[Rfam]
RNA sequence: CUCUUAUCAAGAGUUGGCUGAGGGAAAUGGCCCUAUGAAGCUGCAGCAACCGACCGUAAUACCAUUGUGAAAUGGGGCGCACGAGUAGUAUAGAUGUGCGCUAAAAGAAUAACAAUAACGCUAAUGCGAUAGUUAUUCUCUUGUAAGGCACGGUGCUACAUCCAACAGAAGAUUGUUCUGGUAGAUAAGAG
Dot-bracket structure: ((((((((....(.((((...(((...[[[)))......)))))((((.(((.(............................................................................................).)..))))))...(]]].(((((.....)))))..)))))))))
Rfam assigns this 191-nucleotide sequence from Bacillus mesophilus to the family "SAM riboswitch aptamer (S box leader)".
It scores 68 bits against the family's covariance model.
NCBI's taxonomy places the organism under Bacteria, Bacillota, Bacilli, Caryophanales, Bacillus.